[Rfam]
RNA sequence: CUGAUCGAGACGUUGGGCCAACGCCAGUGCAGCGCGCCCGGUUCCGGGAAGAAUGUUCCCGGGAGCGUCGAAGAGUCAG
Numbered sequence: 001c002u003g004a005u006c007g008a009g010a011c012g013u014u015g016g017g018c019c020a021a022c023g024c025c026a027g028u029g030c031a032g033c034g035c036g037c038c039c040g041g042u043u044c045c046g047g048g049a050a051g052a053a054u055g056u057u058c059c060c061g062g063g064a065g066c067g068u069c070g071a072a073g074a075g076u077c078a079g
Stems, first nucleotide, its partner, number of pairs: 001079005009069005014040004022034003042064009
L4-Archaeoglobi ribosomal protein leades: a 79-nucleotide RNA from Methanoculleus marisnigri.
It is one of the family's seed sequences.
The literature on the family includes a 2020 paper in BMC Microbiol by Eckert and Weinberg, "Discovery of 20 novel ribosomal leader candidates in bacteria and archaea".
Lineage of the source: Archaea > Methanobacteriota > Methanomicrobia > Methanomicrobiales > Methanoculleus marisnigri.
It is annotated as a cis-regulatory leader.